[Rfam]
RNA sequence: UAAUAAACAUAGGAAAAGGUAGUUGCUGGAAACAACUACCCCUUGCAGAACCGUUUAAGACGGUGGCUUGUUAUAAAUUAUUAAAAA
Numbered sequence: 001u002a003a004u005a006a007a008c009a010u011a012g013g014a015a016a017a018g019g020u021a022g023u024u025g026c027u028g029g030a031a032a033c034a035a036c037u038a039c040c041c042c043u044u045g046c047a048g049a050a051c052c053g054u055u056u057a058a059g060a061c062g063g064u065g066g067c068u069u070g071u072u073a074u075a076a077a078u079u080a081u082u083a084a085a086a087a
Stems, first nucleotide, its partner, number of pairs: 024034002050064006